RNA: mir-8517 microRNA precursor family
Organism: Plutella xylostella
RNA sequence: UUACUGGACGGAUUAACUAUUGAACUGUUCUGUCCCUCUCUAACAGAGAACAAUUUGUUCUUUGACAGAGAGUGACAAAACAGUUCAAUAGUUAAUCGGAUUAAC
Dot-bracket structure: ....((....((((((((((((((((((((((((..............((((...))))....))))))..........))))))))))))))))))....))..
Numbered sequence: 001u002u003a004c005u006g007g008a009c010g011g012a013u014u015a016a017c018u019a020u021u022g023a024a025c026u027g028u029u030c031u032g033u034c035c036c037u038c039u040c041u042a043a044c045a046g047a048g049a050a051c052a053a054u055u056u057g058u059u060c061u062u063u064g065a066c067a068g069a070g071a072g073u074g075a076c077a078a079a080a081c082a083g084u085u086c087a088a089u090a091g092u093u094a095a096u097c098g099g100a101u102u103a104a105c
Stems, first nucleotide, its partner, number of pairs: 005103002011097018029069006049059004